[Rfam]
This 80-nucleotide RNA from Canis lupus belongs to the Rfam family "ctgf/hcs24 CAESAR". For this family Rfam cites "Identification of an RNA element that confers post-transcriptional repression of connective tissue growth factor/hypertrophic chondrocyte specific 24 (ctgf/hcs24) gene: similarities to retroviral RNA-protein interactions" (Kubota et al., Oncogene, 2000). The base pairs follow the family's consensus structure, which is taken from published work. Rfam describes the family as follows. The 3' UTR of human connective tissue growth factor/hypertrophic chondrocyte specific 24 (ctgf/hcs24) mRNA has been shown to repress ctgf gene expression. Reference identified a minimal RNA element, predicted to form a stable secondary structure, which acts as a post-transcriptional cis-acting element of structure-anchored repression (CAESAR), probably through direct interactions with as yet unknown nuclear factors. Its family is annotated with negative regulation of gene expression in the Gene Ontology. The family has 9 seed sequences and 518 matches in Rfam 15.1.

RNA sequence: AUGGAGACAUGGCAUAAAGCCAGAGUGUGAGAGGCAUUAACUCAUGAGGCUAUAACUUGAACUGAUUCACAUCUCAUUUU
Numbered sequence: 001a002u003g004g005a006g007a008c009a010u011g012g013c014a015u016a017a018a019g020c021c022a023g024a025g026u027g028u029g030a031g032a033g034g035c036a037u038u039a040a041c042u043c044a045u046g047a048g049g050c051u052a053u054a055a056c057u058u059g060a061a062c063u064g065a066u067u068c069a070c071a072u073c074u075c076a077u078u079u080u
Base pairs, nucleotide, nucleotide: 004075005074006073007072010022011021012020013019027070028069029068030067